[Rfam]
RNA: Archaeal large subunit ribosomal RNA, nucleotides 2078 to 2659
Organism: Salinarchaeum sp. IM2453
RNA sequence: CCCCCAGGGGGAAGCGAAGACCCUAUGGAGCUUUACUGCAGGCUGUCGCUGGGACACGGUCGCUAGUGUGCAGAAUAGGUAGGAGCCAUUACACAGGUGCGUGCGCCAGCACGUCGCCGAGGCAACCUUGAAAUACUACCCGCUAGUGACUGUGACCCUAACUCCGGGAGGAGGACACCGGUAGCCGGGCAGUUUGGCUGGGGCGGCACGCGCUUGAAAAGAUAUCGAGCGCGCCCCAAGAUCACCUCAGCCGGGACAGAGAUCCGGCGAAGAGUGCAAGAGCAAAAGGUGGUCUGACAGUGUCCUACACAGCGAGGGACGCUGACGCGAAAGCGUGGUCUAGCGAACCAAUGAGGCUCCUCAAUGGGGCCCAUUGAUGACAGAAAAGCUACCCUAGGGAUAACAGAGUCGUCACCCGCAAGAGCUCAUAUCGACCGGGUGGCUUGCUACCUCGAUGUCGGUUCCCUCCAUCCUGCCCGUGCAGAAGCGGGCAAGGGUGAGGUUGUUCGCCUAUUAAAGGAGGUCGUGAGCUGGGUUUAGACCGUCGUGAGACAGGUCGGCUGCUAUCUACUGGGGGUGUCA
Number, nucleotide and partner (000 for none) at each position: 001c577002c576003c575004c574005c573006a572007g571008g000009g000010g569011g568012a567013a000014g564015c563016g000017a000018a000019g000020a000021c000022c398023c397024u396025a395026u000027g394028g393029a390030g389031c388032u387033u386034u000035a193036c192037u191038g190039c000040a000041g000042g185043c184044u183045g182046u181047c180048g179049c000050u000051g158052g157053g156054a000055c154056a153057c152058g151059g150060u149061c148062g147063c146064u145065a144066g143067u142068g141069u000070g000071c000072a000073g000074a000075a000076u000077a000078g140079g139080u138081a137082g136083g000084a000085g123086c122087c121088a000089u000090u000091a000092c000093a000094c000095a000096g000097g000098u000099g000100c113101g112102u111103g110104c109105g000106c000107c000108a000109g104110c103111a102112c101113g100114u000115c000116g000117c000118c000119g000120a000121g087122g086123c085124a000125a000126c000127c000128u000129u000130g000131a000132a000133a000134u000135a000136c082137u081138a080139c079140c078141c068142g067143c066144u065145a064146g063147u062148g061149a060150c059151u058152g057153u056154g055155a000156c053157c052158c051159u000160a000161a000162c173163u172164c171165c170166g000167g000168g000169a000170g165171g164172a163173g162174g000175a000176c000177a000178c000179c048180g047181g046182u045183a044184g043185c042186c000187g000188g000189g000190c038191a037192g036193u035194u000195u000196g209197g207198c206199u205200g000201g000202g000203g000204c000205g199206g198207c197208a000209c196210g232211c231212g230213c229214u228215u227216g000217a000218a000219a000220a000221g000222a000223u000224a000225u000226c000227g215228a214229g213230c212231g211232c210233g000234c000235c338236c337237c000238a000239a000240g000241a293242u292243c291244a290245c289246c288247u273248c272249a000250g268251c267252c266253g265254g264255g263256a000257c000258a000259g000260a000261g000262a000263u255264c254265c253266g252267g251268c250269g000270a000271a000272g248273a247274g283275u282276g000277c000278a000279a000280g000281a000282g275283c274284a000285a000286a000287a000288g246289g245290u244291g243292g242293u241294c000295u000296g000297a000298c324299a323300g322301u321302g320303u319304c318305c317306u316307a000308c000309a000310c000311a000312g000313c000314g000315a000316g306317g305318g304319a303320c302321g301322c300323u299324g298325a000326c335327g000328c333329g000330a000331a000332a000333g328334c000335g326336u000337g236338g235339u000340c000341u000342a000343g000344c000345g000346a000347a000348c000349c376350a375351a374352u373353g372354a000355g371356g370357c369358u368359c367360c000361u000362c000363a000364a000365u000366g000367g359368g358369g357370c356371c355372c353373a352374u351375u350376g349377a000378u000379g000380a000381c000382a000383g000384a000385a000386a033387a032388g031389c030390u029391a000392c000393c028394c027395u025396a024397g023398g022399g000400a000401u000402a000403a000404c000405a000406g000407a448408g447409u446410c000411g445412u442413c441414a440415c439416c438417c437418g436419c000420a000421a000422g432423a431424g000425c000426u000427c000428a000429u000430a000431u423432c422433g000434a000435c000436c418437g417438g416439g415440u414441g413442g412443c000444u000445u411446g409447c408448u407449a000450c000451c000452u000453c000454g000455a000456u000457g000458u000459c534460g532461g531462u530463u529464c526465c523466c522467u521468c520469c519470a000471u000472c497473c496474u000475g000476c491477c490478c489479g488480u487481g000482c000483a000484g000485a000486a000487g480488c479489g478490g477491g476492c000493a000494a000495g000496g473497g472498u000499g000500a512501g511502g510503u509504u000505g000506u000507u000508c000509g503510c502511c501512u500513a000514u000515u000516a000517a000518a000519g469520g468521a467522g466523g465524u000525c000526g464527u000528g000529a463530g462531c461532u460533g000534g459535g000536u000537u000538u000539a000540g558541a557542c556543c555544g553545u552546c551547g000548u000549g000550a000551g546552a545553c544554a000555g543556g542557u541558c540559g000560g000561c000562u000563g015564c014565u000566a000567u012568c011569u010570a000571c007572u006573g005574g004575g003576g002577g001578u000579g000580u000581c000582a000